[Rfam]
Rfam assigns this 479-nucleotide part of an RNA from Arthrobacter sunyaminii to the family "Bacterial large subunit ribosomal RNA". The match comes from Rfam's covariance-model search (2778 bits). Its Rfam clan is "LSU clan".
RNA sequence: CUCCCCGAAAUGCAUUUAGGUGCAGCGUUGCGUGUUUCUUACCGGAGGUAGAGCUACUGGAUGGCUAAUGGGCCCUACAAGGUUACUGACGUCAGCCAAACUCCGAAUGCCGGUAAGUGAGAGCGCAGCAGUGAGACUGUGGGGGAUAAGCUUCAUAGUCGAGAGGGAAACAGCCCAGACCACCAACUAAGGCCCCUAAGCGUGUGCUAAGUGGGAAAGGAUGUGGAGUUGCUCAGACAACCAGGAGGUUGGCUUAGAAGCAGCCAUCCUUGAAAGAGUGCGUAAUAGCUCACUGGUCAAGUGAUUCCGCGCCGACAAUGUAGCGGGGCUCAAGUACACCGCCGAAGUUGUGGCAUUCAAAUAUUAGCCAAGCGGAUGGUUUAUCCAUUUUCGUUCAAGCGUUUGGAUGGGUAGGGGAGCGUCGUGUGGGCAGUGAAGUCGCGGUGUAAACCAGCGGUGGAGCCUACACGAGUGAGAAU
Numbered sequence: 001c002u003c004c005c006c007g008a009a010a011u012g013c014a015u016u017u018a019g020g021u022g023c024a025g026c027g028u029u030g031c032g033u034g035u036u037u038c039u040u041a042c043c044g045g046a047g048g049u050a051g052a053g054c055u056a057c058u059g060g061a062u063g064g065c066u067a068a069u070g071g072g073c074c075c076u077a078c079a080a081g082g083u084u085a086c087u088g089a090c091g092u093c094a095g096c097c098a099a100a101c102u103c104c105g106a107a108u109g110c111c112g113g114u115a116a117g118u119g120a121g122a123g124c125g126c127a128g129c130a131g132u133g134a135g136a137c138u139g140u141g142g143g144g145g146a147u148a149a150g151c152u153u154c155a156u157a158g159u160c161g162a163g164a165g166g167g168a169a170a171c172a173g174c175c176c177a178g179a180c181c182a183c184c185a186a187c188u189a190a191g192g193c194c195c196c197u198a199a200g201c202g203u204g205u206g207c208u209a210a211g212u213g214g215g216a217a218a219g220g221a222u223g224u225g226g227a228g229u230u231g232c233u234c235a236g237a238c239a240a241c242c243a244g245g246a247g248g249u250u251g252g253c254u255u256a257g258a259a260g261c262a263g264c265c266a267u268c269c270u271u272g273a274a275a276g277a278g279u280g281c282g283u284a285a286u287a288g289c290u291c292a293c294u295g296g297u298c299a300a301g302u303g304a305u306u307c308c309g310c311g312c313c314g315a316c317a318a319u320g321u322a323g324c325g326g327g328g329c330u331c332a333a334g335u336a337c338a339c340c341g342c343c344g345a346a347g348u349u350g351u352g353g354c355a356u357u358c359a360a361a362u363a364u365u366a367g368c369c370a371a372g373c374g375g376a377u378g379g380u381u382u383a384u385c386c387a388u389u390u391u392c393g394u395u396c397a398a399g400c401g402u403u404u405g406g407a408u409g410g411g412u413a414g415g416g417g418a419g420c421g422u423c424g425u426g427u428g429g430g431c432a433g434u435g436a437a438g439u440c441g442c443g444g445u446g447u448a449a450a451c452c453a454g455c456g457g458u459g460g461a462g463c464c465u466a467c468a469c470g471a472g473u474g475a476g477a478a479u
Stems, first nucleotide, its partner, number of pairs: 001419006011024005026131001027129007036122001038117008051104001052102002058098003062094004070086001071084004135160010165176003180353004185349003191343003200340001202339006219313002223310010240297005246270003251265003271275001276291001280289002354409008420474001422471010438458005443452003